Overview:
The record is an 81-nucleotide RNA, which matches "Small nucleolar RNA U54" in Rfam. It is annotated as a C/D-box small nucleolar RNA. The sequence is in the family's curated seed alignment. Gene Ontology terms of the family: RNA processing and nucleolus.
RNA sequence: AGCUCAGUGAUUCCAGCCACUUACGUUGGCAAUAUACGCUAUACAGACCAUAGUUUGAUGACCAAUGAGAAUAUGAGAGCU
Numbered sequence: 001a002g003c004u005c006a007g008u009g010a011u012u013c014c015a016g017c018c019a020c021u022u023a024c025g026u027u028g029g030c031a032a033u034a035u036a037c038g039c040u041a042u043a044c045a046g047a048c049c050a051u052a053g054u055u056u057g058a059u060g061a062c063c064a065a066u067g068a069g070a071a072u073a074u075g076a077g078a079g080c081u
Base pairs, nucleotide, nucleotide: 001081002080003079004078005077